[Rfam]
RNA sequence: GCUUUUACCCCCACUCCCGCGGACGUAGGAUACAGAGAAGCCCGUGGGCUCUGGGGGAAAGAGC
Numbered sequence: 001g002c003u004u005u006u007a008c009c010c011c012c013a014c015u016c017c018c019g020c021g022g023a024c025g026u027a028g029g030a031u032a033c034a035g036a037g038a039a040g041c042c043c044g045u046g047g048g049c050u051c052u053g054g055g056g057g058a059a060a061g062a063g064c
Base pairs, nucleotide, nucleotide: 001064002063003062004061008057009056010055012053013052018046019045022042024040025033026032
The family of this 64-nucleotide sequence from Cinclus mexicanus is "MAT2A 3'UTR stem loop A". The family's consensus secondary structure is taken from published work. The literature on the family includes a 2011 paper in Genome Res by Parker et al., "New families of human regulatory RNA structures identified by comparative analysis of vertebrate genomes".